RNA sequence: GCUGGAAUUGCGCGGGAAGUAGUUGACGAAGGUGUAGCCGCGCGCCUGGUCGAUGGCGUGGAACAGCGGGUUCCAGUCGAAGAGUUGCAGCAUCGCCGGCGGCAGCGAAUUGGCCACGAACAUCUUGCCCGAGGCGAUCAUGUUGGCGCGCUG
Numbered sequence: 001g002c003u004g005g006a007a008u009u010g011c012g013c014g015g016g017a018a019g020u021a022g023u024u025g026a027c028g029a030a031g032g033u034g035u036a037g038c039c040g041c042g043c044g045c046c047u048g049g050u051c052g053a054u055g056g057c058g059u060g061g062a063a064c065a066g067c068g069g070g071u072u073c074c075a076g077u078c079g080a081a082g083a084g085u086u087g088c089a090g091c092a093u094c095g096c097c098g099g100c101g102g103c104a105g106c107g108a109a110u111u112g113g114c115c116a117c118g119a120a121c122a123u124c125u126u127g128c129c130c131g132a133g134g135c136g137a138u139c140a141u142g143u144u145g146g147c148g149c150g151c152u153g
Stems, first nucleotide, its partner, number of pairs: 003034002008030002013025003037057004041052002064153005071081003088145006096134002100131003103127003107123001110119003
Notes: The family of this 153-nucleotide sequence from Roseivivax sediminis is "Ruegeria cis2 sRNA". A search with the family's covariance model found it, with a score of 76 bits. Its family is annotated with regulation of gene expression in the Gene Ontology.